[Rfam]
RNA sequence: GCGGUCGCCGCGCUGAGUCUCGGACCGGUUCACCGGCCCGGGAGCCGGGGAACCAUCGGUGGUUCGGGCCACCUGGGGUGAAUCGCCUCUCGAGGCGUAGGGCAAAUGUCGUGCCCGAACCCGUCAGCUCACCCGGUAGGCGUACGACGUACAAGGA
Numbered sequence: 001g002c003g004g005u006c007g008c009c010g011c012g013c014u015g016a017g018u019c020u021c022g023g024a025c026c027g028g029u030u031c032a033c034c035g036g037c038c039c040g041g042g043a044g045c046c047g048g049g050g051a052a053c054c055a056u057c058g059g060u061g062g063u064u065c066g067g068g069c070c071a072c073c074u075g076g077g078g079u080g081a082a083u084c085g086c087c088u089c090u091c092g093a094g095g096c097g098u099a100g101g102g103c104a105a106a107u108g109u110c111g112u113g114c115c116c117g118a119a120c121c122c123g124u125c126a127g128c129u130c131a132c133c134c135g136g137u138a139g140g141c142g143u144a145c146g147a148c149g150u151a152c153a154a155g156g157a
Base pairs, nucleotide, nucleotide: 011142012141013140014139018043019042020041021040022039023038044137045136046135047134048133049132054075055074076122077121078120084097085096086095087094100116101115102114103113
RNA: c-di-AMP riboswitch aptamer (ydaO/yuaA leader)